[Rfam]
RNA sequence: UUGAAGGGUUUGAAGACUACCACUUGCAUACUUGGAGGAUUUGAAGACUUCAACUUGCAUACCUUGUUGAAUUUGGAAACUUCAAGU
Numbered sequence: 001u002u003g004a005a006g007g008g009u010u011u012g013a014a015g016a017c018u019a020c021c022a023c024u025u026g027c028a029u030a031c032u033u034g035g036a037g038g039a040u041u042u043g044a045a046g047a048c049u050u051c052a053a054c055u056u057g058c059a060u061a062c063c064u065u066g067u068u069g070a071a072u073u074u075g076g077a078a079a080c081u082u083c084a085a086g087u
Stems, first nucleotide, its partner, number of pairs: 001085006009077006017069001019067002025059004032053006

Shown here is an 87-nucleotide RNA sequence from Solanum tuberosum, a member of the family "MIR8024 microRNA precursor family". Rfam 15.1 lists 661 matches to the family in 8 species.